Source information: MIR2619 microRNA precursor family: a 174-nucleotide RNA sequence from Medicago truncatula. A search with the family's covariance model found it, with a score of 146 bits. NCBI's taxonomy places the organism under Eukaryota, Tracheophyta, Mesangiospermae, Papilionoideae, Medicago.
RNA sequence: AAACAGCCCCCUAUGUAUUGGAUCUUUGGCAGUUUUGGCCCCCAAGGCCACUUUUGACUUAGUACGUGGCACUCACAUCCCUUAAGUGAGGUGCCACGUGUCAACCAUUGUGACUAAGUCAAAAGUGGCCUUGGGGGCCAAAACUGCCAAAGAUCCAAUACAUAGGGGCUGUUU
Dot-bracket structure: ((.(((((...((((((((((((((((((((((((((((((((((..................((.(((((((................)))))))...)).............................))))))))))))))))))))))))))))))))))..))))).))